[Rfam]
RNA sequence: CCCGCGAUUGGACAGAAAGACCCCGUGGAGCUUUACUGUAGCCUGUCACUGGAUUUUGGUAAUUCUUGUACAGGAUAGGUGGGAGACAGAGAAGGUAGGGCGCCAGCCUUACUGGAGUCGACGUUGGGAUACCACCCUGGGAUUACCGGAAUUCUAACCUAUAGCCGUGAAACCGGCGUAGGGACAAUGGCAGGUGGGCAGUUUGACUGGGGCGGUCGCCUCCUAAAGGGUAACGGAGGCGCCCAAAGGUUACCUCAGCGCGGACGGGAAUCGCGCGAAAGAGUGCAAAGGCAGAAGGUAGCCUGACUGCGAGAGAGACAUCUCGAGCAGGGACGAAAGUCGGGCUUAGUGAUCCGGCGGCAGUGAGUGGGAACGCCGUCGCUCAACGGAUAAAAGCUACCCCGGGGAUAACAGGCUGAUCUCCCCCAAGAGUCCACAUCGACGGGGAGGUUUGGCACCUCGAUGUCGGCUCAUCGCAUCCUGGGGCUGAAGUAGGUCCCAAGGGUUGGGCUGUUCGCCCAUUAAAGCGGUACGCGAGCUGGGUUCAGAACGUCGUGAGACAGUUCGGUCCCUAUCCGUCGCGGGCGUA
Numbered sequence: 001c002c003c004g005c006g007a008u009u010g011g012a013c014a015g016a017a018a019g020a021c022c023c024c025g026u027g028g029a030g031c032u033u034u035a036c037u038g039u040a041g042c043c044u045g046u047c048a049c050u051g052g053a054u055u056u057u058g059g060u061a062a063u064u065c066u067u068g069u070a071c072a073g074g075a076u077a078g079g080u081g082g083g084a085g086a087c088a089g090a091g092a093a094g095g096u097a098g099g100g101c102g103c104c105a106g107c108c109u110u111a112c113u114g115g116a117g118u119c120g121a122c123g124u125u126g127g128g129a130u131a132c133c134a135c136c137c138u139g140g141g142a143u144u145a146c147c148g149g150a151a152u153u154c155u156a157a158c159c160u161a162u163a164g165c166c167g168u169g170a171a172a173c174c175g176g177c178g179u180a181g182g183g184a185c186a187a188u189g190g191c192a193g194g195u196g197g198g199c200a201g202u203u204u205g206a207c208u209g210g211g212g213c214g215g216u217c218g219c220c221u222c223c224u225a226a227a228g229g230g231u232a233a234c235g236g237a238g239g240c241g242c243c244c245a246a247a248g249g250u251u252a253c254c255u256c257a258g259c260g261c262g263g264a265c266g267g268g269a270a271u272c273g274c275g276c277g278a279a280a281g282a283g284u285g286c287a288a289a290g291g292c293a294g295a296a297g298g299u300a301g302c303c304u305g306a307c308u309g310c311g312a313g314a315g316a317g318a319c320a321u322c323u324c325g326a327g328c329a330g331g332g333a334c335g336a337a338a339g340u341c342g343g344g345c346u347u348a349g350u351g352a353u354c355c356g357g358c359g360g361c362a363g364u365g366a367g368u369g370g371g372a373a374c375g376c377c378g379u380c381g382c383u384c385a386a387c388g389g390a391u392a393a394a395a396g397c398u399a400c401c402c403c404g405g406g407g408a409u410a411a412c413a414g415g416c417u418g419a420u421c422u423c424c425c426c427c428a429a430g431a432g433u434c435c436a437c438a439u440c441g442a443c444g445g446g447g448a449g450g451u452u453u454g455g456c457a458c459c460u461c462g463a464u465g466u467c468g469g470c471u472c473a474u475c476g477c478a479u480c481c482u483g484g485g486g487c488u489g490a491a492g493u494a495g496g497u498c499c500c501a502a503g504g505g506u507u508g509g510g511c512u513g514u515u516c517g518c519c520c521a522u523u524a525a526a527g528c529g530g531u532a533c534g535c536g537a538g539c540u541g542g543g544u545u546c547a548g549a550a551c552g553u554c555g556u557g558a559g560a561c562a563g564u565u566c567g568g569u570c571c572c573u574a575u576c577c578g579u580c581g582c583g584g585g586c587g588u589a
Stems, first nucleotide, its partner, number of pairs: 001585008010577003015571001022406004027402002029398005035202004042194007051154016068137001078136005085119003094113008158182003164177004205217004218240006241387001243344002249302006255282002258276006283292002307330004313324003332341003355381007363374002415456003419453001420450007430440002467542001468540004472534001473531005480505002483500006507521005548566004552561003
Shown here is a 589-nucleotide part of an RNA from Thermoanaerobacter sp. X513, a member of the family "Bacterial large subunit ribosomal RNA". The organism belongs to Thermoanaerobacter, within Bacteria. Rfam's curators put it in the seed alignment.